[Rfam]
RNA sequence: GAUUUGAAUAUGAGAAUUGAAGGAAAUUGAAUCCAUUUCAAUCUGUUACUAUGGGUUCAAUUUCCUCCAAUAUCUCAUUUUCGGUCA
Number, nucleotide and partner (000 for none) at each position: 001g000002a000003u000004u084005u083006g082007a081008a080009u000010a000011u077012g076013a075014g074015a000016a071017u070018u069019g068020a000021a066022g000023g064024a063025a062026a061027u060028u059029g058030a057031a000032u055033c054034c000035a000036u000037u000038u000039c000040a000041a000042u000043c000044u000045g000046u000047u000048a000049c000050u000051a000052u000053g000054g033055g032056u000057u030058c029059a028060a027061u026062u025063u024064c023065c000066u021067c000068c019069a018070a017071u016072a000073u000074c014075u013076c012077a011078u000079u000080u008081u007082c006083g005084g004085u000086c000087a000